[Rfam]
The family of this 502-nucleotide part of an RNA from Gossypium armourianum is "Eukaryotic large subunit ribosomal RNA". The family's consensus secondary structure is taken from published work.

Nucleotides: 502
Base pairs, nucleotide, nucleotide: 001468003466004465010462011461012460013459014458015457016456018454019453020452035059036058037057038056039055044049060227061226063224064223065222066221067220068219069216070215071214072213073212075205076204079201080200081199082198083197084177085176086175088173089172090171091170097165098164099163101160102159103158104157105156111150112149117144118143119142120141121140124137126135127134228232240447241446242445243444244443245442246441247439248438251265253263268302269301270300271299272298274296275295279289280288281287282286306433307432308431310364315361316360317357318356319355320354322353326351327350333344334343335342336341365383366382367381368380370378384388404420405419406418407417408416481498482497483496484495
Number, partner (000 for none) and nucleotide at each position: 001468u002000a003466g004465a005000a006000c007000a008000a009000u010462g011461u012460a013459g014458g015457c016456a017000a018454g019453g020452g021000a022000a023000g024000u025000a026000a027000g028000c029000a030000a031000a032000a033000u034000g035059g036058a037057u038056c039055c040000g041000u042000a043000a044049c045000c046000u047000c048000a049044g050000g051000a052000a053000a054000a055039g056038g057037a058036u059035u060227g061226g062000c063224u064223c065222u066221g067220a068219g069216g070215g071214u072213u073212g074000g075205g076204c077000a078000c079201g080200g081199g082198g083197g084177u085176c086175c087000u088173a089172g090171u091170c092000c093000c094000g095000a096000a097165c098164c099163u100000a101160u102159c103158g104157g105156u106000u107000a108000c109000u110000a111150g112149u113000a114000c115000a116000c117144u118143g119142c120141u121140u122000a123000a124137g125000c126135u127134a128000c129000u130000c131000c132000c133000a134127u135126g136000a137124u138000g139000a140121g141120a142119g143118c144117a145000a146000g147000u148000c149112g150111c151000c152000u153000u154000g155000u156105g157104c158103u159102g160101g161000u162000c163099g164098g165097g166000g167000a168000c169000g170091g171090a172089c173088u174000g175086g176085g177084a178000a179000u180000g181000a182000c183000u184000c185000c186000c187000u188000c189000a190000a191000u192000g193000g194000c195000c196000u197083u198082c199081c200080c201079c202000a203000g204076g205075c206000g207000a208000c209000g210000a211000a212073c213072a214071g215070u216069c217000g218000a219068c220067u221066c222065a223064g224063a225000a226061c227060u228232g229000g230000a231000a232228u233000g234000g235000a236000c237000a238000a239000g240447g241446g242445g243444a244443a245442u246441c247439u248438g249000a250000c251265u252000a253263u254000u255000u256000a257000a258000u259000u260000a261000a262000u263253a264000c265251a266000a267000a268302g269301c270300a271299u272298u273000c274296c275295u276000a277000u278000g279289g280288u281287c282286c283000c284000u285000a286282g287281g288280a289279u290000g291000c292000u293000c294000a295275g296274g297000c298272a299271a300270u301269g302268u303000g304000a305000u306433u307432u308431c309000u310364g311000c312000c313000u314000a315361g316360u317357g318356c319355u320354c321000u322353g323000a324000a325000c326351g327350u328000c329000a330000a331000a332000g333344u334343g335342a336341a337000g338000a339000a340000a341336u342335u343334c344333a345000a346000c347000u348000a349000a350327g351326c352000a353322u354320g355319g356318g357317u358000a359000a360316a361315c362000a363000a364310c365383g366382g367381g368380a369000g370378u371000g372000c373000c374000u375000a376000u377000g378370a379000g380368u381367c382366u383365c384388u385000u386000a387000a388384g389000g390000u391000a392000g393000c394000c395000a396000a397000a398000u399000g400000c401000c402000u403000c404420g405419u406418c407417a408416u409000c410000u411000a412000a413000u414000u415000a416408g417407u418406g419405a420404c421000a422000u423000g424000c425000a426000u427000g428000a429000a430000u431308g432307g433306a434000u435000u436000a437000a438248u439247g440000a441246g442245a443244u444243u445242c446241u447240c448000a449000c450000u451000g452020u453019c454018c455000c456016u457015g458014u459013u460012u461011a462010c463000u464000a465004u466003c467000c468001a469000a470000u471000g472000a473000a474000a475000c476000c477000a478000c479000a480000a481498c482497c483496a484495a485000g486000g487000g488000a489000a490000c491000g492000a493000g494000g495484u496483u497482g498481g499000c500000a501000g502000a